The record is a 214-nucleotide RNA from Pongo abelii, which matches "Small nucleolar RNA U3" in Rfam. Rfam links the family to the GO terms nucleolus and RNA processing. The match comes from Rfam's covariance-model search (136 bits).

[Rfam]
RNA sequence: AAGACUACACUCUCAGGAAUCAUUUCUAUAGUUUUUUACUAGAGAAAUUUCUCUGAAUGUGUAGAGCACUGGAAACCGUGAGGAGGAGCUGCAUUCUCUUCUGAGCAUGAAGUGAGCUCUCAGUGUUGCUUCUCUGCAACUGCCAUUUGCCAUUGAUGAUCGUUCUUCUCUUCCUCUGGGAGAGUAAAAGGGUACAGGAUGCAGUCUGAGUAAU
Numbered sequence: 001a002a003g004a005c006u007a008c009a010c011u012c013u014c015a016g017g018a019a020u021c022a023u024u025u026c027u028a029u030a031g032u033u034u035u036u037u038a039c040u041a042g043a044g045a046a047a048u049u050u051c052u053c054u055g056a057a058u059g060u061g062u063a064g065a066g067c068a069c070u071g072g073a074a075a076c077c078g079u080g081a082g083g084a085g086g087a088g089c090u091g092c093a094u095u096c097u098c099u100u101c102u103g104a105g106c107a108u109g110a111a112g113u114g115a116g117c118u119c120u121c122a123g124u125g126u127u128g129c130u131u132c133u134c135u136g137c138a139a140c141u142g143c144c145a146u147u148u149g150c151c152a153u154u155g156a157u158g159a160u161c162g163u164u165c166u167u168c169u170c171u172u173c174c175u176c177u178g179g180g181a182g183a184g185u186a187a188a189a190g191g192g193u194a195c196a197g198g199a200u201g202c203a204g205u206c207u208g209a210g211u212a213a214u
Stems, first nucleotide, its partner, number of pairs: 002040002007034001009032003015027004049065002054061001075211002091202007099194001100192003105163002116150002123143002125140005166187002168184007
Rfam classes the family as a C/D-box small nucleolar RNA. About the family: Small nucleolar RNAs (snoRNAs) are involved in the processing and modification of rRNA in the nucleolus. There are two main classes of snoRNAs: the box C/D class, and the box H/ACA class. U3 snoRNA is a member of the box C/D class. Rfam 15.1 lists 19,072 matches to the family in 1,215 species.